[Rfam]
RNA sequence: AUGGUACAAUGAUGACUGCAUAGUUCAGCAGACUAAACAGUGAAGAAGAUGAAUUGUCUUUCGCUCCUAGCUGAUGUAUCGU
Numbered sequence: 001a002u003g004g005u006a007c008a009a010u011g012a013u014g015a016c017u018g019c020a021u022a023g024u025u026c027a028g029c030a031g032a033c034u035a036a037a038c039a040g041u042g043a044a045g046a047a048g049a050u051g052a053a054u055u056g057u058c059u060u061u062c063g064c065u066c067c068u069a070g071c072u073g074a075u076g077u078a079u080c081g082u
Stems, first nucleotide, its partner, number of pairs: 004079005